[Rfam]
About this RNA:
This 75-nucleotide RNA from Streptomyces monashensis belongs to the Rfam family "ASpks TB sRNA". The family's RNA type in Rfam is antisense RNA.
RNA sequence: CUUCAACGACCCGAGCCACAACGGCUUCUGCGGGUCCCGGUCCCGGCCGUACGUCGCGAGCAGCGCCUGCGCCUC
Numbered sequence: 001c002u003u004c005a006a007c008g009a010c011c012c013g014a015g016c017c018a019c020a021a022c023g024g025c026u027u028c029u030g031c032g033g034g035u036c037c038c039g040g041u042c043c044c045g046g047c048c049g050u051a052c053g054u055c056g057c058g059a060g061c062a063g064c065g066c067c068u069g070c071g072c073c074u075c
Stems, first nucleotide, its partner, number of pairs: 014026004031071002038065002043060001047056001049054001